[Rfam]
This 149-nucleotide sequence from Martelella endophytica belongs to the Rfam family "Alphaproteobacterial sRNA ar7". The match comes from Rfam's covariance-model search (80 bits). The literature on the family includes a 2012 paper in RNA Biol by del Val et al., "A survey of sRNA families in alpha-proteobacteria". It is annotated as a small RNA.
RNA sequence: CAACGGCGCCUCAAAACGCCGGUGCCUGACAGAGGCUCGUCCCCCGCCUCUUCAGACAGUAAGGACAAGGGCUCCAUCCCCCCUCUCCGGCCCUUGUCCCAAAAAGCAGCCGCCAUGGUCCGCCCCCCUCCAGGCCAUGGCGGCUUUUU
Numbered sequence: 001c002a003a004c005g006g007c008g009c010c011u012c013a014a015a016a017c018g019c020c021g022g023u024g025c026c027u028g029a030c031a032g033a034g035g036c037u038c039g040u041c042c043c044c045c046g047c048c049u050c051u052u053c054a055g056a057c058a059g060u061a062a063g064g065a066c067a068a069g070g071g072c073u074c075c076a077u078c079c080c081c082c083c084u085c086u087c088c089g090g091c092c093c094u095u096g097u098c099c100c101a102a103a104a105a106g107c108a109g110c111c112g113c114c115a116u117g118g119u120c121c122g123c124c125c126c127c128c129u130c131c132a133g134g135c136c137a138u139g140g141c142g143g144c145u146u147u148u149u
Stems, first nucleotide, its partner, number of pairs: 026055004034048003063099010108145001110143011